[Rfam]
RNA sequence: CGCGGGUCGCCGCCGAGCCGUGGCCCCCACGGGCCGGGGAACCAAGUUUCUGGGGUGAAUCCGCUCGAACGAGUGGUAGGGGCGACUGUUCCGUCCCGAAUCCGUCAGCUCACCCGGUAGGCGGCCGAUGGAGGGAAC
Number, nucleotide and partner (000 for none) at each position: 001c000002g000003c000004g000005g000006g000007u000008c000009g000010c000011c123012g122013c121014c120015g000016a000017g000018c032019c031020g030021u000022g000023g000024c000025c000026c000027c000028c000029a000030c020031g019032g018033g118034c117035c116036g115037g114038g113039g000040a000041a000042c000043c052044a051045a000046g000047u000048u000049u000050c000051u044052g043053g103054g102055g101056u000057g000058a000059a000060u000061c076062c075063g074064c073065u000066c000067g000068a000069a000070c000071g000072a000073g064074u063075g062076g061077u000078a000079g097080g096081g095082g094083c000084g000085a000086c000087u000088g000089u000090u000091c000092c000093g000094u082095c081096c080097c079098g000099a000100a000101u055102c054103c053104g000105u000106c000107a000108g000109c000110u000111c000112a000113c038114c037115c036116g035117g034118u033119a000120g014121g013122c012123g011124g000125c000126c000127g000128a000129u000130g000131g000132a000133g000134g000135g000136a000137a000138c000
c-di-AMP riboswitch aptamer (ydaO/yuaA leader): a 138-nucleotide sequence from Dactylosporangium siamense. Pairs were carried over by alignment from the consensus structure.